The record is a 70-nucleotide RNA sequence from Nannospalax galili, which matches "mir-503 microRNA precursor family" in Rfam. The base pairs follow the family's consensus structure, which was predicted with RNAalifold. Its family is annotated with RISC complex and miRNA-mediated post-transcriptional gene silencing in the Gene Ontology. The literature on the family includes a 2010 paper in Genes Dev by Chiang et al., "Mammalian microRNAs: experimental evaluation of novel and previously annotated genes".

RNA sequence: UGCCCUAGCAGCGGGAACAGUACUGCAGUAAGUGAUUGGACUCUGGAGUAUUGUUUCUGCUGCCAGCGUA
Numbered sequence: 001u002g003c004c005c006u007a008g009c010a011g012c013g014g015g016a017a018c019a020g021u022a023c024u025g026c027a028g029u030a031a032g033u034g035a036u037u038g039g040a041c042u043c044u045g046g047a048g049u050a051u052u053g054u055u056u057c058u059g060c061u062g063c064c065a066g067c068g069u070a
Stems, first nucleotide, its partner, number of pairs: 002069002005066001008063014023048002026045003031042003